[Rfam]
Notes:
Shown here is a 92-nucleotide RNA from Pelagibacterales bacterium SAG-MED30, a member of the family "Glycine riboswitch aptamer". The source organism's lineage runs through Bacteria, Pseudomonadati, Pseudomonadota, Alphaproteobacteria and Candidatus Pelagibacterales. Rfam links the family to the GO term glycine biosynthetic process. It scores 63 bits against the family's covariance model.
RNA sequence: AGAUUAGUUAACGGGAGAGACUACAAAAUAUCGUAGCGCCGAAGGAGCAACCACCCAGGAAUCUCUCAGGCAAAAAGGACCGUAACAUAUUA
Numbered sequence: 001a002g003a004u005u006a007g008u009u010a011a012c013g014g015g016a017g018a019g020a021c022u023a024c025a026a027a028a029u030a031u032c033g034u035a036g037c038g039c040c041g042a043a044g045g046a047g048c049a050a051c052c053a054c055c056c057a058g059g060a061a062u063c064u065c066u067c068a069g070g071c072a073a074a075a076a077g078g079a080c081c082g083u084a085a086c087a088u089a090u091u092a
Base pairs, nucleotide, nucleotide: 007086008085009084010083012082013081014080021036022035023034024033038071039070040069041067042066045065046064047063051058